[Rfam]
RNA: PreQ1 (pre queuosine) riboswitch aptamer
Organism: Bacillus coahuilensis
RNA sequence: ACAGGAGAGGUUCGAGAACUCCCUCUAUAAAAAACUACAAGAAA
Numbered sequence: 001a002c003a004g005g006a007g008a009g010g011u012u013c014g015a016g017a018a019c020u021c022c023c024u025c026u027a028u029a030a031a032a033a034a035c036u037a038c039a040a041g042a043a044a
Stems, first nucleotide, its partner, number of pairs: 006026005016036001